Record summary
Rfam assigns this 175-nucleotide part of an RNA from Diaporthe helianthi to the family "Ascomycota telomerase RNA". Its family is annotated with telomerase activity, telomerase catalytic core complex and telomere maintenance via telomerase in the Gene Ontology. The match comes from Rfam's covariance-model search (420 bits). The base pairs follow the family's consensus structure.
[Rfam]
RNA sequence: ACGCCUUGCUCACUACACCGCCCGGUGGUGUGCAUGACCCCUCUCAGCUACCAGAAAUGGACUGCGCGAGAGACGAUAGCGCAGUUUUUGAGGAUGUCUUUUGUCUGCGCGCUACUUGCCCUCCUUCGUUGCUCUUGGUGGCCCGCUGGAGAGGACACAAAAACUAGCCCUUGUU
Numbered sequence: 001a002c003g004c005c006u007u008g009c010u011c012a013c014u015a016c017a018c019c020g021c022c023c024g025g026u027g028g029u030g031u032g033c034a035u036g037a038c039c040c041c042u043c044u045c046a047g048c049u050a051c052c053a054g055a056a057a058u059g060g061a062c063u064g065c066g067c068g069a070g071a072g073a074c075g076a077u078a079g080c081g082c083a084g085u086u087u088u089u090g091a092g093g094a095u096g097u098c099u100u101u102u103g104u105c106u107g108c109g110c111g112c113u114a115c116u117u118g119c120c121c122u123c124c125u126u127c128g129u130u131g132c133u134c135u136u137g138g139u140g141g142c143c144c145g146c147u148g149g150a151g152a153g154g155a156c157a158c159a160a161a162a163a164c165u166a167g168c169c170c171u172u173g174u175u
Base pairs, nucleotide, nucleotide: 011032012031013030017026018025019024040075041072042071043070044069045068053058093169095167096164097163099162100161101160102159103158104157119154120153121151122150123149124148131146132145137143138142